[Rfam]
RNA sequence: CACAAAUAAUGCGAUGAGGCUCGCAUAACGCCGCAAGGCUAAUGGCUUCUACUAUUGG
Numbered sequence: 001c002a003c004a005a006a007u008a009a010u011g012c013g014a015u016g017a018g019g020c021u022c023g024c025a026u027a028a029c030g031c032c033g034c035a036a037g038g039c040u041a042a043u044g045g046c047u048u049c050u051a052c053u054a055u056u057g058g
Stems, first nucleotide, its partner, number of pairs: 010025004016049006030039003
Rfam assigns this 58-nucleotide RNA from Ktedonosporobacter rubrisoli to the family "Fluoride riboswitch aptamer (crcB RNA motif)". The base pairs follow the family's consensus structure, which is taken from published work. It scores 34 bits against the family's covariance model.